[Rfam]
RNA sequence: GCGGGUAUAGUUUAAUGGUAAAAUUCCUCCUUGCCAAGGAGAAUAUGCGGGUUCGAUUCCCGCUACCCGCC
Numbered sequence: 001g002c003g004g005g006u007a008u009a010g011u012u013u014a015a016u017g018g019u020a021a022a023a024u025u026c027c028u029c030c031u032u033g034c035c036a037a038g039g040a041g042a043a044u045a046u047g048c049g050g051g052u053u054c055g056a057u058u059c060c061c062g063c064u065a066c067c068c069g070c071c
Stems, first nucleotide, its partner, number of pairs: 001070007010024004027041004047063005
RNA: tRNA